Shown here is an 80-nucleotide RNA sequence from Neogale vison, a member of the family "Small nucleolar RNA SNORD11B".
The literature on the family includes a 2006 paper in Nucleic Acids Res by Yang et al., "snoSeeker: an advanced computational package for screening of guide and orphan snoRNA genes in the human genome".
Taxonomically the source falls in Neogale (Eukaryota, Gnathostomata, Dipnotetrapodomorpha, Musteloidea).

RNA sequence: UGAUGGCGAUGAUGAUUUUUAAACUUGAUCCCCCUGAUAAAUAUGAGGGUGUUCAGUCACUACCUCAUCUGAUGCCAUCU
Numbered sequence: 001u002g003a004u005g006g007c008g009a010u011g012a013u014g015a016u017u018u019u020u021a022a023a024c025u026u027g028a029u030c031c032c033c034c035u036g037a038u039a040a041a042u043a044u045g046a047g048g049g050u051g052u053u054c055a056g057u058c059a060c061u062a063c064c065u066c067a068u069c070u071g072a073u074g075c076c077a078u079c080u
Stems, first nucleotide, its partner, number of pairs: 002079006